Notes
A member of the RNA family "putative aminoglycoside riboswitch / attI site" from Escherichia coli, 72 nucleotides long. The match comes from Rfam's covariance-model search (71 bits). The family's consensus secondary structure is taken from published work. The family has 4 seed sequences and 39 matches in Rfam 15.1. For this family Rfam cites "Riboswitch control of aminoglycoside antibiotic resistance" (Jia et al., Cell, 2013). It is annotated as a cis-regulatory element. NCBI's taxonomy places the organism under Bacteria, Gammaproteobacteria, Escherichia, Escherichia coli, Escherichia coli O83:H1.

RNA sequence: GGAGCAGCAACGAUGUUACGCAGCAGGGCAGUCGCCCUAAAACAAAGUUAACCUCUGAGGAAGAAUUGUGAA
Numbered sequence: 001g002g003a004g005c006a007g008c009a010a011c012g013a014u015g016u017u018a019c020g021c022a023g024c025a026g027g028g029c030a031g032u033c034g035c036c037c038u039a040a041a042a043c044a045a046a047g048u049u050a051a052c053c054u055c056u057g058a059g060g061a062a063g064a065a066u067u068g069u070g071a072a
Stems, first nucleotide, its partner, number of pairs: 004069001006017001008015002020055001023052001026037004038050003058066001